[Rfam]
RNA sequence: AGGGCCACCGGGUCGACCGCCCGGGUCACCGUCAGGUAGUCACGGAUCGCGAUGCCGUGCCGCGCCUC
Numbered sequence: 001a002g003g004g005c006c007a008c009c010g011g012g013u014c015g016a017c018c019g020c021c022c023g024g025g026u027c028a029c030c031g032u033c034a035g036g037u038a039g040u041c042a043c044g045g046a047u048c049g050c051g052a053u054g055c056c057g058u059g060c061c062g063c064g065c066c067u068c
Stems, first nucleotide, its partner, number of pairs: 004063002008059001011030003015027004035056004040052002043049002
The record is a 68-nucleotide sequence from Salinispora tropica, which matches "ASdes TB sRNA" in Rfam.
The base pairs follow the family's consensus structure, which is taken from published work.
The family's RNA type in Rfam is small RNA.
The sequence is in the family's curated seed alignment.
The literature on the family includes a 2009 paper in Mol Microbiol by Arnvig and Young, "Identification of small RNAs in Mycobacterium tuberculosis".